[Rfam]
RNA: TPP riboswitch aptamer (THI element)
Nucleotides: 115
Stems, first nucleotide, its partner, number of pairs: 006103005011065004017052005071096004078089003
Number, partner (000 for none) and nucleotide at each position: 001000g002000a003000u004000a005000a006103a007102c008101u009100u010099u011065a012064g013063g014062g015000g016000u017052g018051u019050u020049u021048c022000c023000u024000a025000a026000a027000a028000u029000u030000g031000a032000a033000a034000a035000u036000a037000u038000c039000a040000a041000u042000u043000u044000u045000u046000g047000u048021g049020a050019a051018a052017c053000u054000g055000a056000g057000a058000u059000u060000u061000a062014c063013c064012c065011u066000u067000u068000g069000a070000a071096c072095c073094u074093g075000a076000u077000g078089a079088a080087g081000u082000u083000a084000g085000u086000a087080c088079u089078u090000a091000c092000g093074u094073a095072g096071g097000g098000a099010a100009a101008a102007g103006u104000g105000a106000a107000u108000g109000u110000u111000u112000u113000a114000u115000u